[Rfam]
RNA sequence: CCCAGGGCGUUGCCCUGGGCUACGUUUGGCCGCCCCUUUGGGGCU
Numbered sequence: 001c002c003c004a005g006g007g008c009g010u011u012g013c014c015c016u017g018g019g020c021u022a023c024g025u026u027u028g029g030c031c032g033c034c035c036c037u038u039u040g041g042g043g044c045u
Stems, first nucleotide, its partner, number of pairs: 001019008032044005
Acido-Lenti-1 RNA: a 45-nucleotide RNA sequence from Oceaniferula marina.